[Rfam]
RNA sequence: AUACAUUCAUGAGCUUGUUUUUUUUCCUCACUCAUAACAAGCUUCUCGAAAAGCUUUAGGAAUAUUGUGUUCAUUGUUACUGGCUGAACUGUCUUAGAAUUUUAUUUUUCCUUGAAAGAUGGUUCAAUAAACAAUGGAACAUUC
Numbered sequence: 001a002u003a004c005a006u007u008c009a010u011g012a013g014c015u016u017g018u019u020u021u022u023u024u025u026c027c028u029c030a031c032u033c034a035u036a037a038c039a040a041g042c043u044u045c046u047c048g049a050a051a052a053g054c055u056u057u058a059g060g061a062a063u064a065u066u067g068u069g070u071u072c073a074u075u076g077u078u079a080c081u082g083g084c085u086g087a088a089c090u091g092u093c094u095u096a097g098a099a100u101u102u103u104a105u106u107u108u109u110c111c112u113u114g115a116a117a118g119a120u121g122g123u124u125c126a127a128u129a130a131a132c133a134a135u136g137g138a139a140c141a142u143u144c
Base pairs, nucleotide, nucleotide: 005056007053011044012043014041015040016039017038018037019036070138071137072136073135074134075133076132077131078130085126086125087124088123089122090121091120092119093118